[Rfam]
RNA sequence: CACUUAUCAAGAAAGACGGAGGGACUUGGCCCGUUGAUGUCUUAGCAACCCUGGCUGGCAGGGUGCUACUUCCAGCCCCGAACGGUGCACACCGUGGGGGAAGAUGAGGG
Number, nucleotide and partner (000 for none) at each position: 001c110002a000003c108004u107005u106006a105007u104008c103009a000010a000011g000012a000013a043014a042015g041016a040017c039018g000019g000020a000021g032022g031023g030024a000025c000026u075027u074028g073029g072030c023031c022032c021033g000034u000035u000036g000037a000038u000039g017040u016041c015042u014043u013044a067045g066046c065047a064048a000049c063050c062051c061052u060053g059054g000055c000056u000057g000058g000059c053060a052061g051062g050063g049064u047065g046066c045067u044068a000069c000070u000071u102072c029073c028074a027075g026076c099077c098078c097079c096080g095081a000082a000083c000084g000085g000086u000087g000088c000089a000090c000091a000092c000093c000094g000095u080096g079097g078098g077099g076100g000101a000102a071103g008104a007105u006106g005107a004108g003109g000110g001